The family of this 43-nucleotide RNA from Shigella sonnei is "ES036 (CssrF) sRNA".
The family has 4 seed sequences and 273 matches in Rfam 15.1.
A search with the family's covariance model found it, with a score of 50 bits.
A reference for the family is Peng et al. (2011), "An integrated approach for finding overlooked genes in Shigella", PLoS One.
NCBI's taxonomy places the organism under Bacteria, Pseudomonadota, Gammaproteobacteria, Shigella, Shigella sonnei.
Rfam's curators write: Differentially expressed under several chemical stress conditions.

[Rfam]
RNA sequence: AAGAUCGUGCAAAUUCAAUAUAUUGCAUGAGCCACGUAGGCCU
Number, nucleotide and partner (000 for none) at each position: 001a000002a000003g000004a000005u030006c029007g000008u027009g026010c025011a024012a023013a000014u000015u000016c000017a000018a000019u000020a000021u000022a000023u012024u011025g010026c009027a008028u000029g006030a005031g000032c000033c000034a000035c000036g000037u000038a000039g000040g000041c000042c000043u000